[Rfam]
Nucleotides: 193
Base pairs, nucleotide, nucleotide: 002191003190007186008185009184010183011182012180017176018175019174032164033163034162035161036159037158038157039156040155041154059135060134061133063131064130065129067127074124075123076122077121078120079119085113086112091109092108093107094106095105
Number, partner (000 for none) and nucleotide at each position: 001000u002191u003190c004000c005000c006000u007186c008185u009184g010183c011182c012180g013000a014000c015000u016000u017176c018175g019174u020000g021000a022000g023000g024000c025000g026000c027000u028000g029000g030000a031000c032164g033163a034162u035161u036159g037158a038157a039156u040155c041154c042000c043000g044000a045000g046000u047000a048000a049000g050000c051000a052000a053000g054000a055000a056000c057000c058000a059135g060134g061133g062000a063131g064130c065129c066000a067127g068000c069000a070000a071000c072000g073000a074124u075123a076122c077121c078120g079119u080000g081000g082000u083000g084000a085113g086112c087000u088000a089000g090000g091109c092108c093107c094106g095105g096000a097000a098000c099000c100000a101000u102000u103000c104000a105095c106094c107093g108092g109091g110000a111000a112086g113085c114000c115000u116000g117000a118000a119079g120078c121077g122076g123075u124074a125000c126000u127067u128000a129065g130064g131063c132000u133061c134060c135059c136000a137000c138000c139000u140000a141000g142000c143000a144000g145000c146000u147000a148000u149000g150000c151000u152000a153000g154041g155040g156039g157038u158037u159036c160000a161035a162034g163033u164032c165000c166000u167000u168000c169000g170000g171000c172000c173000c174019a175018c176017g177000u178000c179000c180012u181000c182011g183010g184009c185008g186007g187000u188000a189000c190003g191002g192000a193000a
A member of the RNA family "6S / SsrS RNA" from Sorangium cellulosum, 193 nucleotides long.
The match comes from Rfam's covariance-model search (48 bits).
The family's RNA type in Rfam is non-coding RNA gene.
E. coli 6S RNA was the first non coding RNA to be sequenced, but its function was unknown until recently. It consists of 184 nucleotides that fold into an extended hairpin structure with a large single-stranded internal bulge.
NCBI's taxonomy places the organism under Bacteria, Pseudomonadati, Polyangiaceae, Sorangium, Sorangium cellulosum.